Rfam assigns this 64-nucleotide RNA sequence from Neogobius melanostomus to the family "mir-7552 microRNA precursor family". NCBI's taxonomy places the organism under Eukaryota, Craniata, Percomorphaceae, Gobiiformes, Neogobius. It scores 65 bits against the family's covariance model.
RNA sequence: UUACAAUUAAAGGAUAUUUCUCGUGGUUGUCUAGAGAAACGGAAAUAUCUCUUAAUUGUUGGGC
Numbered sequence: 001u002u003a004c005a006a007u008u009a010a011a012g013g014a015u016a017u018u019u020c021u022c023g024u025g026g027u028u029g030u031c032u033a034g035a036g037a038a039a040c041g042g043a044a045a046u047a048u049c050u051c052u053u054a055a056u057u058g059u060u061g062g063g064c
Stems, first nucleotide, its partner, number of pairs: 003059008012050010024035001